[Rfam]
RNA sequence: AGCUCAACAGGAAUCUUGAUUUCCUUCUUAACCUUUGGUAUGUAAGGGUCUCUGGUGUUUUUAAAUGAUUGUUUCUUCUUCAUGCU
Numbered sequence: 001a002g003c004u005c006a007a008c009a010g011g012a013a014u015c016u017u018g019a020u021u022u023c024c025u026u027c028u029u030a031a032c033c034u035u036u037g038g039u040a041u042g043u044a045a046g047g048g049u050c051u052c053u054g055g056u057g058u059u060u061u062u063a064a065a066u067g068a069u070u071g072u073u074u075c076u077u078c079u080u081c082a083u084g085c086u
Stems, first nucleotide, its partner, number of pairs: 009079004016064004025055002031049007

The family of this 86-nucleotide RNA sequence from Felis catus is "Stem loopII regulatory element in POLB". The base pairs follow the family's consensus structure, which is taken from published work. For this family Rfam cites "Hairpin structure within the 3'UTR of DNA polymerase beta mRNA acts as a post-transcriptional regulatory element and interacts with Hax-1" (Sarnowska et al., Nucleic Acids Res, 2007). Rfam classes the family as a cis-regulatory element. The sequence is in the family's curated seed alignment. Its family is annotated with regulation of RNA stability in the Gene Ontology.